[Rfam]
RNA sequence: GUGAAAUUAAUCACAAAACAAACAUUUACCCCUUUGUUUGACCGUGAAAAAUUUCUCCCAUCCCCUUUGUUGUCGUUAAGACACAUAAAGAAUCGUGCUUUUCCCGGCACGAUUUCUUU
Numbered sequence: 001g002u003g004a005a006a007u008u009a010a011u012c013a014c015a016a017a018a019c020a021a022a023c024a025u026u027u028a029c030c031c032c033u034u035u036g037u038u039u040g041a042c043c044g045u046g047a048a049a050a051a052u053u054u055c056u057c058c059c060a061u062c063c064c065c066u067u068u069g070u071u072g073u074c075g076u077u078a079a080g081a082c083a084c085a086u087a088a089a090g091a092a093u094c095g096u097g098c099u100u101u102u103c104c105c106g107g108c109a110c111g112a113u114u115u116c117u118u119u
Base pairs, nucleotide, nucleotide: 003055004054005053006052007051008050011047012046013045014044019040020039021038022037023036024035071085074080090115091114092113093112094111095110096109097108098107099106
The record is a 119-nucleotide RNA from Metabacillus lacus, which matches "RNA Staph. aureus E (RoxS)" in Rfam. Rfam links the family to the GO term regulation of translational initiation. From the family's description: It was shown to be regulated by the presence of nitric oxide (NO). In Bacillus subtilis it controls expression of genes with functions related to oxidative stress and oxidation-reduction reactions and it was renamed RoxS (for related to oxidative stress). NCBI's taxonomy places the organism under Bacteria, Bacillota, Bacilli, Caryophanales, Metabacillus. On this family, see Geissmann et al., Nucleic Acids Res 2009: "A search for small noncoding RNAs in Staphylococcus aureus reveals a conserved sequence motif for regulation". The family's consensus secondary structure is taken from published work.